[Rfam]
RNA sequence: CUAGGCUAUGGAGAUAUGUACCCCAAAACCUGGUCAGGCAUGCUGGUGGGAGCACUUUGUGCUCUAGCAGGGGUCCUUACCAUUGCCAUGCCUGUCCCAGUCAUCGUCAACAAC
Numbered sequence: 001c002u003a004g005g006c007u008a009u010g011g012a013g014a015u016a017u018g019u020a021c022c023c024c025a026a027a028a029c030c031u032g033g034u035c036a037g038g039c040a041u042g043c044u045g046g047u048g049g050g051a052g053c054a055c056u057u058u059g060u061g062c063u064c065u066a067g068c069a070g071g072g073g074u075c076c077u078u079a080c081c082a083u084u085g086c087c088a089u090g091c092c093u094g095u096c097c098c099a100g101u102c103a104u105c106g107u108c109a110a111c112a113a114c
Stems, first nucleotide, its partner, number of pairs: 002113001004111001008107004013102003018097001020095002037077002040074001049063002
RNA: Potassium channel RNA editing signal